[Rfam]
RNA sequence: GCGCCGGUCUUUCUCCUCCCAUUGAGCCCGGCGCGUUCCCCUCUGGAGGUUUUAACCUUCACACCUCGGCCAGGCUUCUGCCUGGCCUUUUU
Dot-bracket structure: (((((.(.(................).).))))).........(((((((....)))))))......((((((((....)))))))).....
Shown here is a 92-nucleotide RNA sequence from Oryzicola mucosus, a member of the family "Alphaproteobacterial ar15". The literature on the family includes a 2012 paper in RNA Biol by del Val et al., "A survey of sRNA families in alpha-proteobacteria". Its Rfam clan is "suhB sRNA clan". The pairing is the family consensus, mapped onto this sequence. The family's RNA type in Rfam is small RNA. Its family is annotated with protein binding in the Gene Ontology.